[Rfam]
Nucleotides: 127
Base pairs, nucleotide, nucleotide: 008078009077010076011075012074014028015027016026017025029049031047032046033045034044035043036042050073051072052071053070054069055068056067098124102122103121104120105119106118107117108116109115
Number, partner (000 for none) and nucleotide at each position: 001000a002000a003000a004000a005000a006000g007000g008078g009077u010076c011075g012074g013000u014028u015027g016026g017025c018000u019000a020000u021000a022000u023000a024000u025017g026016c027015c028014a029049c030000u031047c032046u033045c034044a035043c036042c037000c038000u039000u040000g041000c042036g043035g044034u045033g046032a047031g048000u049029g050073c051072u052071g053070u054069a055068u056067g057000g058000c059000u060000a061000u062000c063000a064000a065000g066000a067056c068055a069054u070053a071052u072051g073050g074012c075011c076010g077009a078008c079000a080000u081000a082000a083000u084000u085000u086000c087000u088000g089000g090000a091000a092000c093000c094000u095000u096000c097000u098124a099000u100000a101000g102122g103121g104120u105119u106118g107117g108116c109115u110000c111000g112000c113000u114000c115109g116108g117107c118106c119105g120104a121103c122102c123000c124098u125000c126000a127000a
Shown here is a 127-nucleotide RNA from Dioscorea zingiberensis, a member of the family "U11 spliceosomal RNA".
It scores 74 bits against the family's covariance model.
The source organism's lineage runs through Eukaryota, Streptophyta, Petrosaviidae, Dioscoreaceae and Dioscorea.
The literature on the family includes a 1988 paper in Proc Natl Acad Sci U S A by Montzka and Steitz, "Additional low-abundance human small nuclear ribonucleoproteins: U11, U12, etc".
The base pairs follow the family's consensus structure, which is taken from published work.
Gene Ontology terms of the family: U11 snRNP, mRNA 5'-splice site recognition and pre-mRNA 5'-splice site binding.